[Rfam]
RNA sequence: UUGCACUGUCCUUCAUUCCACCGGAUCCUGUUUACCAGUCUGCAGAUUCCCAGUGGGAUGAAGCUCAGUGGGGC
Numbered sequence: 001u002u003g004c005a006c007u008g009u010c011c012u013u014c015a016u017u018c019c020a021c022c023g024g025a026u027c028c029u030g031u032u033u034a035c036c037a038g039u040c041u042g043c044a045g046a047u048u049c050c051c052a053g054u055g056g057g058a059u060g061a062a063g064c065u066c067a068g069u070g071g072g073g074c
Stems, first nucleotide, its partner, number of pairs: 011063006019055003023050003028045003
Dot-bracket structure: ..........((((((..(((.(((..(((............)))..)))..)))..))))))...........
Shown here is a 74-nucleotide RNA from Salvelinus namaycush, a member of the family "mir-205 microRNA precursor family". Lineage of the source: Eukaryota > Chordata > Craniata > Protacanthopterygii > Salvelinus. Gene Ontology terms of the family: RISC complex and miRNA-mediated post-transcriptional gene silencing. The family's consensus secondary structure was predicted with RNAalifold.